Shown here is a 46-nucleotide sequence from Planctomycetaceae bacterium SCGC AG-212-F19, a member of the family "Acido-Lenti-1 RNA".
RNA sequence: CCCAGCAAUGAAUUGCUGGGCUAUUAUCAAGUGCCCCGCCGGGGCA
Numbered sequence: 001c002c003c004a005g006c007a008a009u010g011a012a013u014u015g016c017u018g019g020g021c022u023a024u025u026a027u028c029a030a031g032u033g034c035c036c037c038g039c040c041g042g043g044g045c046a
Stems, first nucleotide, its partner, number of pairs: 001020008033045005
Source information: It scores 40 bits against the family's covariance model. Rfam classes the family as a small RNA.